[Rfam]
RNA sequence: AGUACUGAAUGGUAUCUGCAGCCAGCCGCUACUCCGGAUGGACUGUUCAUUAGUCAGUGCAAGAGCAGAUCGGCAUAUGGUAUCGAUGGUCUCCUUGCCUCUUUGUGCCUGGGGUCCUGGUAUAUCUGUCGAUACAAAC
Number, nucleotide and partner (000 for none) at each position: 001a000002g060003u059004a058005c057006u056007g055008a000009a000010u000011g000012g000013u000014a054015u053016c000017u000018g046019c045020a044021g043022c000023c041024a039025g000026c037027c036028g035029c000030u000031a000032c000033u000034c000035c028036g027037g026038a000039u024040g000041g023042a000043c021044u020045g019046u018047u000048c000049a000050u000051u000052a000053g015054u014055c007056a006057g005058u004059g003060c002061a000062a000063g000064a127065g126066c000067a000068g123069a000070u120071c119072g118073g117074c000075a000076u000077a000078u000079g109080g108081u107082a106083u105084c000085g000086a000087u000088g000089g000090u000091c000092u000093c000094c000095u000096u000097g000098c000099c000100u000101c000102u000103u000104u000105g083106u082107g081108c080109c079110u000111g000112g000113g000114g000115u000116c000117c073118u072119g071120g070121u000122a000123u068124a000125u000126c065127u064128g000129u000130c000131g000132a000133u000134a000135c000136a000137a000138a000139c000
The record is a 139-nucleotide RNA from Coregonus sp. 'balchen', which matches "Small nucleolar RNA SNORA8" in Rfam. The base pairs follow the family's consensus structure, which was predicted with RNAfold. Rfam links the family to the GO terms nucleolus and RNA processing. It scores 53 bits against the family's covariance model. The family has 5 seed sequences and 1,490 matches in Rfam 15.1. Rfam classes the family as an H/ACA-box small nucleolar RNA. Lineage of the source: Eukaryota > Bilateria > Euteleostomi > Neopterygii > Coregonus. Clan: SNORA8 clan.